[Rfam]
RNA sequence: GUGUGAUUUGGCCUAAGAGAGCCACCUGUUGACAGUUGGAGCCAGAUUUAGAUACUGUCAUGGAGUUGCUCUCUUAAGGCAAAUUACA
Numbered sequence: 001g002u003g004u005g006a007u008u009u010g011g012c013c014u015a016a017g018a019g020a021g022c023c024a025c026c027u028g029u030u031g032a033c034a035g036u037u038g039g040a041g042c043c044a045g046a047u048u049u050a051g052a053u054a055c056u057g058u059c060a061u062g063g064a065g066u067u068g069c070u071c072u073c074u075u076a077a078g079g080c081a082a083a084u085u086a087c088a
Stems, first nucleotide, its partner, number of pairs: 014076005020070003026063003031059003035055002
Shown here is an 88-nucleotide RNA from Bursaphelenchus xylophilus, a member of the family "mir-46/mir-47/mir-281 microRNA precursor family". The organism belongs to Bursaphelenchus, within Eukaryota.